[Rfam]
Small nucleolar RNA SNORA53: a 199-nucleotide RNA sequence from Collichthys lucidus. The family's consensus secondary structure was predicted with RNAalifold. Rfam links the family to the GO terms nucleolus and RNA processing. Rfam describes the family as follows. The snoRNA ACA53 belongs to the H/ACA family of pseudouridylation guide snoRNAs. Rfam classes the family as an H/ACA-box small nucleolar RNA. A search with the family's covariance model found it, with a score of 90 bits.

RNA sequence: AACACGCUCCUUAGAUCCACCUCUGGAGGCGCUGUGCUCUGGUGCAGCCCCUCAGCAGCUUUCUGGCUGCACAGUUGGAGGUGCUUGAGUCAUUGGCGUGUGAGAACAGUCUACCUGUCCCCCAGCCCACCUGCAGCACUGACAGCCCAGUCCUACAGACGGGGAGCACCCAGUGCUGCAAGCCUGGAGGACGGACACA
Numbered sequence: 001a002a003c004a005c006g007c008u009c010c011u012u013a014g015a016u017c018c019a020c021c022u023c024u025g026g027a028g029g030c031g032c033u034g035u036g037c038u039c040u041g042g043u044g045c046a047g048c049c050c051c052u053c054a055g056c057a058g059c060u061u062u063c064u065g066g067c068u069g070c071a072c073a074g075u076u077g078g079a080g081g082u083g084c085u086u087g088a089g090u091c092a093u094u095g096g097c098g099u100g101u102g103a104g105a106a107c108a109g110u111c112u113a114c115c116u117g118u119c120c121c122c123c124a125g126c127c128c129a130c131c132u133g134c135a136g137c138a139c140u141g142a143c144a145g146c147c148c149a150g151u152c153c154u155a156c157a158g159a160c161g162g163g164g165a166g167c168a169c170c171c172a173g174u175g176c177u178g179c180a181a182g183c184c185u186g187g188a189g190g191a192c193g194g195a196c197a198c199a
Base pairs, nucleotide, nucleotide: 002101003100004099005098006097007096008095010089011088012087013086014085018083019082020081021080022079023078024077025076026053027052028051029050031048036045037044055070056069057068058067059066060065115194116193117192118191119190122187124185125184127182134178135177136176137175138174139173140172141171145170151163152162153161